[Rfam]
RNA sequence: GGCGUAUUUUGCCCAGGCGGAGCUCGACCGCCCGUUCCGCAAAUGAUCGCUUUCAUUGAAGCGCACCGUGAGGUCUUCGGAGUCGAGCCGAUCUGCCGCGUUCUGCCGAUCGCCCCU
Number, nucleotide and partner (000 for none) at each position: 001g000002g000003c000004g000005u000006a000007u000008u000009u000010u000011g000012c000013c000014c000015a000016g032017g031018c030019g029020g028021a000022g000023c000024u000025c000026g000027a000028c020029c019030g018031c017032c016033c000034g000035u000036u000037c000038c000039g000040c000041a000042a000043a000044u000045g000046a000047u000048c000049g000050c000051u000052u000053u000054c000055a000056u000057u000058g000059a000060a000061g000062c000063g000064c000065a000066c000067c000068g000069u000070g000071a000072g000073g000074u000075c000076u000077u000078c000079g116080g115081a000082g113083u000084c000085g000086a000087g000088c000089c112090g111091a000092u109093c108094u000095g106096c105097c000098g103099c000100g000101u000102u000103c098104u000105g096106c095107c000108g093109a092110u000111c090112g089113c082114c000115c080116c079117u000
The family of this 117-nucleotide RNA sequence from Roseovarius nanhaiticus is "ALIL pseudoknot". NCBI's taxonomy places the organism under Bacteria, Pseudomonadati, Rhodobacterales, Roseobacteraceae, Roseovarius. Rfam 15.1 lists 2,146 matches to the family in 1,098 species. A search with the family's covariance model found it, with a score of 107 bits.